[Rfam]
RNA sequence: CCGCCCGUCGCUACUACCGAUUGAAUGAUUUAGUGAGGUCUUCGGACCGGUGGGCGCGGGGGUUCGCCCCUUCGAUUCCACUGGGAAGAUGCCCGAACUUGAUCAUUUAGAGGAAGUAAAAGUCGUAACAAGGUUUCCGUAGGUGAACCUGCGGAAGGAUCAUUA
Numbered sequence: 001c002c003g004c005c006c007g008u009c010g011c012u013a014c015u016a017c018c019g020a021u022u023g024a025a026u027g028a029u030u031u032a033g034u035g036a037g038g039u040c041u042u043c044g045g046a047c048c049g050g051u052g053g054g055c056g057c058g059g060g061g062g063u064u065c066g067c068c069c070c071u072u073c074g075a076u077u078c079c080a081c082u083g084g085g086a087a088g089a090u091g092c093c094c095g096a097a098c099u100u101g102a103u104c105a106u107u108u109a110g111a112g113g114a115a116g117u118a119a120a121a122g123u124c125g126u127a128a129c130a131a132g133g134u135u136u137c138c139g140u141a142g143g144u145g146a147a148c149c150u151g152c153g154g155a156a157g158g159a160u161c162a163u164u165a
Stems, first nucleotide, its partner, number of pairs: 001132001003129001006125002009122001012118004017113002021109001023108008032099003037094002040091001042089002047084008057074001059071004134157010
Dot-bracket structure: (.(..((.(..((((.((..(.((((((((.(((..((.(.((...((((((((..(.((((.....))))..)..))))))))...)).).))..))).)))))))))..)).))))...).))...)..).((((((((((....))))))))))........
RNA: Eukaryotic small subunit ribosomal RNA, nucleotides 1752 to 1916
Organism: Coptotermes formosanus